[Rfam]
RNA sequence: UUUUUAAUGAUGAUACGAUGACGAGUAUGAAAAAGUAAAGAGGAUUUAUUACCGUUUUUAAGUACAUGUUUUAUGUACUUACUAAUUCGUAAUGAAUCGAUUUCUUUAUUUUUAAAGAAUGAUUAUUUGAGGCAUUUGGCUGAAAAA
Numbered sequence: 001u002u003u004u005u006a007a008u009g010a011u012g013a014u015a016c017g018a019u020g021a022c023g024a025g026u027a028u029g030a031a032a033a034a035g036u037a038a039a040g041a042g043g044a045u046u047u048a049u050u051a052c053c054g055u056u057u058u059u060a061a062g063u064a065c066a067u068g069u070u071u072u073a074u075g076u077a078c079u080u081a082c083u084a085a086u087u088c089g090u091a092a093u094g095a096a097u098c099g100a101u102u103u104c105u106u107u108a109u110u111u112u113u114a115a116a117g118a119a120u121g122a123u124u125a126u127u128u129g130a131g132g133c134a135u136u137u138g139g140c141u142g143a144a145a146a147a
Stems, first nucleotide, its partner, number of pairs: 017136004031113009040080003